[Rfam]
RNA sequence: CCCUUAGGGGCAAAUGAUGAUCCGAGUCGGCUCCCCCGCGUCCUCGUAAGGGCGGCGAGGGGAGGAAGACGGUCGCCUCCCUGGCUCGGGGAGUGAGUGGCGAGACCGGCCCCCUGCAUC
Dot-bracket structure: ....((((((...((......((((((((.........................................[[[[[[[....))))))))...))....]]]]]..]]...))))))....
Numbered sequence: 001c002c003c004u005u006a007g008g009g010g011c012a013a014a015u016g017a018u019g020a021u022c023c024g025a026g027u028c029g030g031c032u033c034c035c036c037c038g039c040g041u042c043c044u045c046g047u048a049a050g051g052g053c054g055g056c057g058a059g060g061g062g063a064g065g066a067a068g069a070c071g072g073u074c075g076c077c078u079c080c081c082u083g084g085c086u087c088g089g090g091g092a093g094u095g096a097g098u099g100g101c102g103a104g105a106c107c108g109g110c111c112c113c114c115u116g117c118a119u120c
Stems, first nucleotide, its partner, number of pairs: 005116006014094002022089008071107002073103005